[Rfam]
RNA sequence: CAAUCAUUGCUUCAACAGUGAUUGAAUAGCAUUG
Number, nucleotide and partner (000 for none) at each position: 001c034002a033003a032004u031005c000006a000007u029008u000009g027010c000011u026012u025013c024014a023015a022016c020017a000018g000019u000020g016021a000022u015023u014024g013025a012026a011027u009028a000029g007030c000031a004032u003033u002034g001